The family of this 73-nucleotide sequence from Symbiodinium sp. CCMP2592 is "tRNA". The family's consensus secondary structure is taken from published work.
RNA sequence: GGGCAGGUAGCUCAGUUGGUAGAGCACGGCAUUGAAAAUGCCGGUGUCCCCGGUUCAAGUCCGGGUCUGCCCA
Numbered sequence: 001g002g003g004c005a006g007g008u009a010g011c012u013c014a015g016u017u018g019g020u021a022g023a024g025c026a027c028g029g030c031a032u033u034g035a036a037a038a039u040g041c042c043g044g045u046g047u048c049c050c051c052g053g054u055u056c057a058a059g060u061c062c063g064g065g066u067c068u069g070c071c072c073a
Stems, first nucleotide, its partner, number of pairs: 001072007010025004027043005049065005